[Rfam]
RNA sequence: AUGCACCUGUCAAUAUAUGAGGUCUUACUCGUCUUUCUAGUGAGAUUUCGAGAUAUGGUGCAUGCAGGAAAAGCUGUUUUACAGCAGCAACCAGACAACUGUAGAGAUAAAUCUACAGGUGAGUGGUCUGAAAUCUGAAAACCAUUUGUCCCCUGAUUCUAUGUCACAUCU
Numbered sequence: 001a002u003g004c005a006c007c008u009g010u011c012a013a014u015a016u017a018u019g020a021g022g023u024c025u026u027a028c029u030c031g032u033c034u035u036u037c038u039a040g041u042g043a044g045a046u047u048u049c050g051a052g053a054u055a056u057g058g059u060g061c062a063u064g065c066a067g068g069a070a071a072a073g074c075u076g077u078u079u080u081a082c083a084g085c086a087g088c089a090a091c092c093a094g095a096c097a098a099c100u101g102u103a104g105a106g107a108u109a110a111a112u113c114u115a116c117a118g119g120u121g122a123g124u125g126g127u128c129u130g131a132a133a134u135c136u137g138a139a140a141a142c143c144a145u146u147u148g149u150c151c152c153c154u155g156a157u158u159c160u161a162u163g164u165c166a167c168a169u170c171u
Stems, first nucleotide, its partner, number of pairs: 002062005009054003018050012104165002107162003111158001121147007

Rfam assigns this 171-nucleotide RNA sequence from Phoenix dactylifera to the family "small nucleolar RNA snoR143". NCBI's taxonomy places the organism under Eukaryota, Streptophyta, Streptophytina, Petrosaviidae, Phoenix. The base pairs follow the family's consensus structure, which was predicted with RNAalifold. It scores 54 bits against the family's covariance model. The literature on the family includes a 2009 paper in Nucleic Acids Res by Chen and Wu, "Mining small RNA sequencing data: a new approach to identify small nucleolar RNAs in Arabidopsis".